[Rfam]
RNA sequence: UGAUGGAAGAAGGAGCUGCCCGCUUCUCGCCUGAUCGACGCUAUAUGUUGUUGGCAGGUUUUAGAUCUAAAUUAAUCAUUCAUUAAAUAACUUGAAUGAAAAGCGGGUGCUUUGUGCCCGCUUUUUUUAUUGCGC
Numbered sequence: 001u002g003a004u005g006g007a008a009g010a011a012g013g014a015g016c017u018g019c020c021c022g023c024u025u026c027u028c029g030c031c032u033g034a035u036c037g038a039c040g041c042u043a044u045a046u047g048u049u050g051u052u053g054g055c056a057g058g059u060u061u062u063a064g065a066u067c068u069a070a071a072u073u074a075a076u077c078a079u080u081c082a083u084u085a086a087a088u089a090a091c092u093u094g095a096a097u098g099a100a101a102a103g104c105g106g107g108u109g110c111u112u113u114g115u116g117c118c119c120g121c122u123u124u125u126u127u128u129a130u131u132g133c134g135c
Base pairs, nucleotide, nucleotide: 011027012026013025014024015023016022029059030058031057037052038051039050040048041047102122103121104120105119106118107117108116109115110114
Shown here is a 135-nucleotide RNA sequence from Lederbergia galactosidilytica, a member of the family "Ribosomal protein L20 leader". The source organism's lineage runs through Bacteria, Bacillati, Bacilli, Caryophanales and Lederbergia. The family's consensus secondary structure was predicted with CMfinder. By type it is a cis-regulatory leader. Rfam links the family to the GO term regulation of gene expression. Rfam describes the family as follows. This family is a putative r-protein leader autoregulatory structure found in B. subtilis and other low-GC Gram-positive bacteria. It is located in the 5' untranslated regions of mRNAs encoding initiation factor 3 followed by ribosomal proteins L35 and L20 (infC-rpmI-rplT).